[Rfam]
RNA sequence: CUCUAAUAUUAUUUCAGAUUAUAUAUUUUAAGGAAUAUAUACAGUAAAGUAUUAGAUAUUAAAGAGGUUUAUUCCCUCCUAAUGUAGGUAAAUAUGUAUCAGUAAAUUAUAUGUUAGUAAGCUUUUUUAGUAGAAUGUAUGUAAUUUAC
Number, nucleotide and partner (000 for none) at each position: 001c000002u000003c055004u054005a053006a052007u051008a050009u049010u000011a000012u000013u047014u046015c000016a000017g000018a000019u000020u041021a040022u039023a038024u037025a036026u035027u034028u033029u000030a000031a000032g000033g028034a027035a026036u025037a024038u023039a022040u021041a020042c000043a000044g000045u000046a014047a013048a000049g009050u008051a007052u006053u005054a004055g003056a000057u000058a000059u000060u000061a000062a000063a000064g000065a000066g000067g000068u000069u000070u000071a000072u000073u000074c000075c000076c000077u000078c088079c087080u086081a085082a000083u000084g000085u081086a080087g079088g078089u000090a000091a000092a000093u000094a000095u000096g000097u000098a000099u000100c000101a000102g149103u148104a147105a146106a145107u144108u143109a142110u141111a140112u139113g138114u137115u000116a000117g000118u000119a000120a000121g131122c130123u000124u000125u000126u000127u000128u000129a000130g122131u121132a000133g000134a000135a000136u000137g114138u113139a112140u111141g110142u109143a108144a107145u106146u105147u104148a103149c102